[Rfam]
RNA sequence: UUCACCGCGGCCUCCGAUUCAGUUGAUGCAAGGCGGGAACCAAUUCUCCGCCGUUGCGAAAACUGCGGAUGUAGUGGUUCCCGACCUGCACCAAGCGAAUUAGAGACCGCGAAGUGA
Numbered sequence: 001u002u003c004a005c006c007g008c009g010g011c012c013u014c015c016g017a018u019u020c021a022g023u024u025g026a027u028g029c030a031a032g033g034c035g036g037g038a039a040c041c042a043a044u045u046c047u048c049c050g051c052c053g054u055u056g057c058g059a060a061a062a063c064u065g066c067g068g069a070u071g072u073a074g075u076g077g078u079u080c081c082c083g084a085c086c087u088g089c090a091c092c093a094a095g096c097g098a099a100u101u102a103g104a105g106a107c108c109g110c111g112a113a114g115u116g117a
Base pairs, nucleotide, nucleotide: 013104014103017100018099019098020097023094024093025092027090028089029088030087032085034083035082036081037080038079040077041076
The family of this 117-nucleotide sequence from Trifolium subterraneum is "MIR168 microRNA precursor family". Rfam links the family to the GO terms miRNA-mediated post-transcriptional gene silencing and RISC complex. A search with the family's covariance model found it, with a score of 67 bits. Lineage of the source: Eukaryota > Streptophytina > Tracheophyta > Gunneridae > Trifolium. The literature on the family includes a 2002 paper in Cell by Rhoades et al., "Prediction of plant microRNA targets". Rfam 15.1 lists 518 matches to the family in 218 species. The base pairs follow the family's consensus structure, which was predicted with WAR.